The record is a 65-nucleotide sequence from Bombyx mori, which matches "mir-2774 microRNA precursor family" in Rfam. Rfam links the family to the GO terms RISC complex and miRNA-mediated post-transcriptional gene silencing. Pairs were carried over by alignment from the consensus structure, which was predicted with RNAalifold. Taxonomically the source falls in Bombyx (Eukaryota, Heteroneura, Obtectomera, Bombycidae). It scores 64 bits against the family's covariance model.
RNA sequence: ACAAGAUUGGAUCGCCAGUCUACCGAGCAAUAUCACUCGCUCGGUGGAAGAUCUUCCCUAGGCGU
Numbered sequence: 001a002c003a004a005g006a007u008u009g010g011a012u013c014g015c016c017a018g019u020c021u022a023c024c025g026a027g028c029a030a031u032a033u034c035a036c037u038c039g040c041u042c043g044g045u046g047g048a049a050g051a052u053c054u055u056c057c058c059u060a061g062g063c064g065u
Stems, first nucleotide, its partner, number of pairs: 009057003014052001016050001019048010